[Rfam]
RNA sequence: CCAGGAAGAUGACCUAUGAAUUGACAGCCAGCUGAUUCUCGUGUAUGUCUGUCAUUUCUGUAGGCCAAUAUUCUGA
Number, nucleotide and partner (000 for none) at each position: 001c000002c075003a074004g073005g072006a071007a000008g069009a000010u067011g066012a000013c064014c063015u062016a061017u000018g058019a057020a056021u000022u054023g053024a052025c051026a050027g049028c000029c047030a046031g000032c000033u000034g000035a000036u000037u000038c000039u000040c000041g000042u000043g000044u000045a000046u030047g029048u000049c027050u026051g025052u024053c023054a022055u000056u020057u019058c018059u000060g000061u016062a015063g014064g013065c000066c011067a010068a000069u008070a000071u006072u005073c004074u003075g002076a000
Rfam assigns this 76-nucleotide RNA sequence from Leptobrachium leishanense to the family "mir-192/215 microRNA precursor family". The match comes from Rfam's covariance-model search (71 bits). From the family's description: This family represents the human microRNA (miRNA) precursors mir-192 and mir-215. Its family is annotated with miRNA-mediated post-transcriptional gene silencing and RISC complex in the Gene Ontology. The family's consensus secondary structure was predicted with PFOLD. Lineage of the source: Eukaryota > Vertebrata > Euteleostomi > Dipnotetrapodomorpha > Leptobrachium.